[Rfam]
RNA sequence: GGUCAAUGAUGCUUGGCAUGUAUUAACUGAUUUAAGCUGAAGACUUCUGCUUUAGCUCUAGAAUUACUCUGAGACCUC
Numbered sequence: 001g002g003u004c005a006a007u008g009a010u011g012c013u014u015g016g017c018a019u020g021u022a023u024u025a026a027c028u029g030a031u032u033u034a035a036g037c038u039g040a041a042g043a044c045u046u047c048u049g050c051u052u053u054a055g056c057u058c059u060a061g062a063a064u065u066a067c068u069c070u071g072a073g074a075c076c077u078c
Stems, first nucleotide, its partner, number of pairs: 001076004
RNA: Small nucleolar RNA SNORD45
Organism: Sphenodon punctatus